Shown here is a 79-nucleotide sequence from Orthoflavivirus ntayaense, a member of the family "General Flavivirus exoribonuclease-resistant RNA element". Lineage of the source: Viruses > Kitrinoviricota > Orthoflavivirus > Euflavivirus > Orthoflavivirus ntayaense. It is one of the family's seed sequences. For this family Rfam cites "A folded viral noncoding RNA blocks host cell exoribonucleases through a conformationally dynamic RNA structure" (Steckelberg et al., Proc Natl Acad Sci U S A, 2018).

RNA sequence: GAUAGUCAGGCCAGGCAAUGCCUGCCACCGGAAGUUGGAUGACGGUGCUGUCUGCGCUCCAACCCCAGGCGGACUGGGU
Number, nucleotide and partner (000 for none) at each position: 001g000002a000003u000004a000005g058006u000007c054008a053009g052010g051011c050012c024013a023014g022015g021016c000017a000018a000019u000020g000021c015022c014023u013024g012025c000026c000027a000028c045029c044030g043031g000032a000033a000034g000035u000036u000037g000038g000039a000040u000041g000042a000043c030044g029045g028046u000047g000048c000049u000050g011051u010052c009053u008054g007055c000056g000057c000058u005059c000060c000061a000062a000063c000064c078065c077066c076067a075068g074069g000070c000071g000072g000073a000074c068075u067076g066077g065078g064079u000
From the family's description: The exoribonuclease-resistant RNA elements (xrRNA) are described throughout all groups of flaviviruses. Usually, each virus harbors two xrRNAs, xrRNA1 and xrRNA2, in the beginning of the 3' UTR. The formation of these stem-loops, especially xrRNA1, is vital to ensure resistance against XRN1 activity. The Y-shaped stem-loop is also termed SL II and SL IV, respectively. In order to function as xrRNA, the sequence downstream is needed as well, since the upper loop region forms a pseudoknot (PK) with the single-stranded region directly downstream to its respective hairpin.